[Rfam]
Nucleotides: 243
Base pairs, nucleotide, nucleotide: 002112004110011103013101014100015099016098017097029076030075031074033072034071035070036069038067039066040065041064043062044061045060046059047058048057078091079090080089081088082087123164125162126161127160128159129158130157131156133151134150135149198226199225200224201223202222204220205219206218207217208216209215
Number, partner (000 for none) and nucleotide at each position: 001000c002112u003000u004110u005000u006000u007000u008000a009000c010000g011103c012000a013101u014100a015099a016098u017097a018000a019000a020000c021000c022000a023000c024000c025000u026000a027000u028000u029076u030075a031074c032000a033072u034071u035070u036069u037000a038067c039066u040065g041064u042000u043062c044061c045060u046059g047058u048057u049000c050000a051000a052000u053000a054000a055000g056000u057048g058047a059046c060045a061044g062043g063000u064041a065040u066039a067038g068000a069036a070035a071034a072033a073000c074031g075030u076029a077000u078091u079090a080089u081088a082087a083000g084000g085000u086000u087082u088081u089080a090079u091078a092000g093000u094000u095000c096000c097017u098016a099015u100014u101013a102000u103011g104000c105000g106000a107000u108000u109000u110004a111000u112002a113000c114000a115000a116000a117000a118000a119000a120000a121000u122000a123164u124000a125162c126161u127160g128159c129158c130157a131156g132000a133151c134150g135149g136000c137000a138000a139000a140000u141000a142000a143000a144000a145000a146000a147000a148000a149135c150134c151133g152000u153000u154000u155000u156131c157130u158129g159128g160127c161126a162125g163000c164123a165000u166000g167000a168000u169000u170000u171000u172000c173000u174000u175000g176000c177000g178000u179000c180000a181000a182000a183000a184000u185000c186000a187000g188000u189000u190000u191000u192000a193000a194000a195000u196000c197000c198226a199225g200224a201223c202222g203000a204220c205219g206218g207217u208216u209215u210000g211000a212000a213000g214000a215209a216208a217207g218206c219205c220204g221000u222202c223201g224200u225199c226198u227000u228000u229000u230000u231000g232000a233000u234000u235000g236000u237000u238000a239000a240000a241000u242000g243000a
Shown here is a 243-nucleotide sequence from Clostridium sp. KLE 1755, a member of the family "Cis-regulator of HTH transcription factor". Rfam's curators put it in the seed alignment. The organism belongs to Clostridium, within Bacteria. This element was identified by RNA deep sequencing of Clostridioides difficile 630 where it is located immediately upstream of an uncharacterized HTH-type Transcriptional regulator. Homologues are found widely across firmicutes, consistently located 5' of transcriptional regulators of similar size and sequence, which strongly supports a cis-regulatory function. RNA is referred to as CD630_SQ2397 in ref. Note: the sequence is highly conserved and shows no evidence for covariation as per R-scape analysis.